[Rfam]
RNA sequence: GCAUGGACGAAUUCUGUAUUACUUAUUCAAUGGUAUUUACAGUCAGACACCAUGCAAAAUUAAUAUUCACUUUUUUUUUUUAAUUGCAGGUAAGCUUGCAUGCUUCUUGCUUGGUAAAAGUGAAAACAAGA
Numbered sequence: 001g002c003a004u005g006g007a008c009g010a011a012u013u014c015u016g017u018a019u020u021a022c023u024u025a026u027u028c029a030a031u032g033g034u035a036u037u038u039a040c041a042g043u044c045a046g047a048c049a050c051c052a053u054g055c056a057a058a059a060u061u062a063a064u065a066u067u068c069a070c071u072u073u074u075u076u077u078u079u080u081u082a083a084u085u086g087c088a089g090g091u092a093a094g095c096u097u098g099c100a101u102g103c104u105u106c107u108u109g110c111u112u113g114g115u116a117a118a119a120g121u122g123a124a125a126a127c128a129a130g131a
Stems, first nucleotide, its partner, number of pairs: 001055006014042005066124003070120005076114001081113003086110005
About this RNA: Shown here is a 131-nucleotide RNA from Polypterus senegalus, a member of the family "Small nucleolar RNA SNORA15". Rfam links the family to the GO terms nucleolus and RNA processing. Rfam's curators write: ACA15 is a member of the H/ACA class of snoRNA that guide the sites of modification of uridines to pseudouridines. The base pairs follow the family's consensus structure, which was predicted with RNAfold.